A member of the RNA family "RAGATH-32 RNA" from Legionella beliardensis, 77 nucleotides long. The match comes from Rfam's covariance-model search (56 bits).
[Rfam]
RNA sequence: GUGGCUGGACGUUUAAGUUGGGAAACCCUUCAUGGAUACCUGCCGUUCGGCAGCGUAAUUUUAGAAACUUACUGUCA
Numbered sequence: 001g002u003g004g005c006u007g008g009a010c011g012u013u014u015a016a017g018u019u020g021g022g023a024a025a026c027c028c029u030u031c032a033u034g035g036a037u038a039c040c041u042g043c044c045g046u047u048c049g050g051c052a053g054c055g056u057a058a059u060u061u062u063a064g065a066a067a068c069u070u071a072c073u074g075u076c077a
Base pairs, nucleotide, nucleotide: 037057038056039055040053041052042051043050044049058069060067061066